Rfam assigns this 57-nucleotide RNA from Apium graveolens to the family "Plastid-psbA-2 3UTR RNA".
It is annotated as a cis-regulatory element.
[Rfam]
RNA sequence: AAAAGGAGCAAUACAUCUUUCUUGUUCUAUCAAGAGAGCGGUAUUGCUCCUUUUUUU
Numbered sequence: 001a002a003a004a005g006g007a008g009c010a011a012u013a014c015a016u017c018u019u020u021c022u023u024g025u026u027c028u029a030u031c032a033a034g035a036g037a038g039c040g041g042u043a044u045u046g047c048u049c050c051u052u053u054u055u056u057u
Stems, first nucleotide, its partner, number of pairs: 001054014016037002020035005
Its Rfam clan is "Plastid-psbA 3UTR RNA clan". NCBI's taxonomy places the organism under Eukaryota, Streptophyta, Streptophytina, Pentapetalae, Apium. Plastid psbA-2 is a non-coding RNA (ncRNA) present in plastids. It was identified in inverted repeat sequences in the 3 prime untranslate region (3UTR) of photosystem II quinone-binding protein (psbA). The family's consensus secondary structure was predicted with LocARNA. On this family, see Richter et al., Plant Commun 2023: "Retrograde signaling in plants: A critical review focusing on the GUN pathway and beyond". The sequence is in the family's curated seed alignment.